A member of the RNA family "SAM riboswitch aptamer (S box leader)" from bacterium A37T11, 111 nucleotides long.
RNA sequence: GAUUUAUAAAGAAGUGGCGAGAGACUGGCUCAAUGACCCACUGGCAACCAUUCGCCUAAAGCGGAAAAGGUGCCAAGUCCUGUCCCGGGAUGUUCCGGGAAUAGAUAAAUA
Numbered sequence: 001g002a003u004u005u006a007u008a009a010a011g012a013a014g015u016g017g018c019g020a021g022a023g024a025c026u027g028g029c030u031c032a033a034u035g036a037c038c039c040a041c042u043g044g045c046a047a048c049c050a051u052u053c054g055c056c057u058a059a060a061g062c063g064g065a066a067a068a069g070g071u072g073c074c075a076a077g078u079c080c081u082g083u084c085c086c087g088g089g090a091u092g093u094u095c096c097g098g099g100a101a102u103a104g105a106u107a108a109a110u111a
Base pairs, nucleotide, nucleotide: 002110003109004108005107006106007105013042014041015040016039017038021031022030023029025082027080028079043074044073045072046071048070049069051066052065053064078103083100084099085098086097087096088095
Dot-bracket structure: .((((((.....(((((...(((.[.[[)))......)))))((((.((.(((..........)))..))))))...(]].]((((((......))))))..).)))))).
The family's consensus secondary structure is taken from published work. It scores 79 bits against the family's covariance model.